[Rfam]
Rfam assigns this 120-nucleotide sequence from Malus baccata to the family "U5 spliceosomal RNA". The match comes from Rfam's covariance-model search (62 bits).

RNA sequence: UAGCCGGGCGGUGAGUACAGAGUGAACUAUUCUUUCGUCUUUUACUAAAGAAUACCAUGUGCGUACCGCAUGAAGUGGCAUGUGCCAAUUUUUUCAAGGGAUUUCUCCCACAAAAGAAGC
Numbered sequence: 001u002a003g004c005c006g007g008g009c010g011g012u013g014a015g016u017a018c019a020g021a022g023u024g025a026a027c028u029a030u031u032c033u034u035u036c037g038u039c040u041u042u043u044a045c046u047a048a049a050g051a052a053u054a055c056c057a058u059g060u061g062c063g064u065a066c067c068g069c070a071u072g073a074a075g076u077g078g079c080a081u082g083u084g085c086c087a088a089u090u091u092u093u094u095c096a097a098g099g100g101a102u103u104u105c106u107c108c109c110a111c112a113a114a115a116g117a118a119g120c
Base pairs, nucleotide, nucleotide: 003079004078005077006076009068010067011066012065013064015062016061017060018059019058028054029053030052031051032050033049034048035047102119103118104117105116106115

Rfam classes the family as a spliceosomal small nuclear RNA.